[Rfam]
BsrC: an 86-nucleotide RNA from Brevibacillus fluminis. The base pairs follow the family's consensus structure, which was predicted with CMfinder.

RNA sequence: UGAAACCAAAACAACGAAAGCCCUUCCUCUCUUCCAUCCUUGCGGCUCCGAUGACCGCGCCAGUGAAUUGGAAACCAAAAAGAAAA
Numbered sequence: 001u002g003a004a005a006c007c008a009a010a011a012c013a014a015c016g017a018a019a020g021c022c023c024u025u026c027c028u029c030u031c032u033u034c035c036a037u038c039c040u041u042g043c044g045g046c047u048c049c050g051a052u053g054a055c056c057g058c059g060c061c062a063g064u065g066a067a068u069u070g071g072a073a074a075c076c077a078a079a080a081a082g083a084a085a086a
Base pairs, nucleotide, nucleotide: 035065036064039063040062041059042058043057044056045055047053
On this family, see Saito et al., Gene 2008: "Novel small RNA-encoding genes in the intergenic regions of Bacillus subtilis". The 301 nucleotide sequence from Kouji Nakamura has been trimmed to a highly conserved ~85 nucleotide long core to form this family. Rfam classes the family as a small RNA.